[Rfam]
RNA sequence: CGACCCCACCCCCACUCGGAUCGUCCGGCACGUUCCUGCCGGUAGGAGAAGCACAC
Number, nucleotide and partner (000 for none) at each position: 001c000002g000003a000004c000005c000006c000007c000008a000009c048010c000011c046012c045013c000014a043015c000016u000017c000018g000019g000020a000021u000022c000023g000024u000025c042026c041027g040028g039029c038030a037031c000032g000033u000034u000035c000036c000037u030038g029039c028040c027041g026042g025043u014044a000045g012046g011047a000048g009049a000050a000051g000052c000053a000054c000055a000056c000
Notes
This 56-nucleotide sequence from Modestobacter sp. VKM Ac-2676 belongs to the Rfam family "msiK RNA". Rfam 15.1 lists 1,374 matches to the family in 1,364 species. It scores 44 bits against the family's covariance model. The base pairs follow the family's consensus structure, which is taken from published work.